This 94-nucleotide RNA sequence from Paenibacillus graminis belongs to the Rfam family "c-di-GMP-I riboswitch aptamer".

[Rfam]
Nucleotides: 094
Base pairs, nucleotide, nucleotide: 012038013037017033018032019031020030022029023028041088042087043086044085046084047083048082050078051077056073057072058071059070060069061068062067
Number, partner (000 for none) and nucleotide at each position: 001000a002000a003000c004000a005000c006000a007000u008000a009000u010000u011000g012038g013037c014000a015000a016000a017033a018032u019031u020030c021000a022029c023028c024000g025000a026000a027000a028023g029022g030020g031019a032018a033017u034000g035000a036000c037013g038012c039000a040000a041088a042087g043086c044085c045000a046084u047083g048082g049000a050078u051077c052000u053000a054000c055000a056073g057072u058071c059070u060069c061068a062067u063000u064000u065000u066000u067062a068061u069060g070059g071058g072057a073056c074000c075000a076000u077051g078050a079000c080000u081000g082048c083047c084046a085044g086043g087042u088041u089000g090000c091000u092000g093000a094000a
Lineage of the source: Bacteria > Bacillati > Caryophanales > Paenibacillaceae > Paenibacillus.